This 84-nucleotide sequence from Clupea harengus belongs to the Rfam family "mir-130 microRNA precursor family". For this family Rfam cites "Identification of tissue-specific microRNAs from mouse" (Lagos-Quintana et al., Curr Biol, 2002). The match comes from Rfam's covariance-model search (52 bits). The source organism's lineage runs through Eukaryota, Metazoa, Vertebrata, Clupeoidei and Clupea. Its family is annotated with RISC complex and miRNA-mediated post-transcriptional gene silencing in the Gene Ontology. Pairs were carried over by alignment from the consensus structure, which was predicted with PFOLD.
RNA sequence: GUCUGUCCAGUGCCCCUUUGACCUUGUGCUCCUGGUGAUCUGGUAAUGGAAGCAGUGCAAUGUUAAAAGGGCAUUGGCCAGGGC
Numbered sequence: 001g002u003c004u005g006u007c008c009a010g011u012g013c014c015c016c017u018u019u020g021a022c023c024u025u026g027u028g029c030u031c032c033u034g035g036u037g038a039u040c041u042g043g044u045a046a047u048g049g050a051a052g053c054a055g056u057g058c059a060a061u062g063u064u065a066a067a068a069g070g071g072c073a074u075u076g077g078c079c080a081g082g083g084c
Stems, first nucleotide, its partner, number of pairs: 001084003005079001007077004012072004017067003022062001024060007